Source information: Rfam assigns this 87-nucleotide RNA sequence from Clostridium chromiireducens to the family "Glycine riboswitch aptamer". The source organism's lineage runs through Bacteria, Bacillati, Clostridia, Eubacteriales and Clostridium.
RNA sequence: AUAACGAAUUGGGGAGAGCCUGCAACACACGCAGCGCCGAAGGUGAAGUCGCAACAAACUCUCAGGCAAAAGGACCGAAUUCUGACG
Numbered sequence: 001a002u003a004a005c006g007a008a009u010u011g012g013g014g015a016g017a018g019c020c021u022g023c024a025a026c027a028c029a030c031g032c033a034g035c036g037c038c039g040a041a042g043g044u045g046a047a048g049u050c051g052c053a054a055c056a057a058a059c060u061c062u063c064a065g066g067c068a069a070a071a072g073g074a075c076c077g078a079a080u081u082c083u084g085a086c087g
Base pairs, nucleotide, nucleotide: 006082007081008080009079010078012076013075020034021033022032023031036067037066038065039063040062043061045059049054
About the family: This family represents the bacterial glycine riboswitch. Glycine riboswitches usually consist of two metabolite-binding aptamers domains with similar structures in tandem. The aptamers cooperatively bind glycine to regulate the expression of downstream genes. In Bacillus subtilis, this riboswitch is found upstream of the gcvT operon which controls glycine degradation.
It scores 59 bits against the family's covariance model.
Rfam links the family to the GO term glycine biosynthetic process.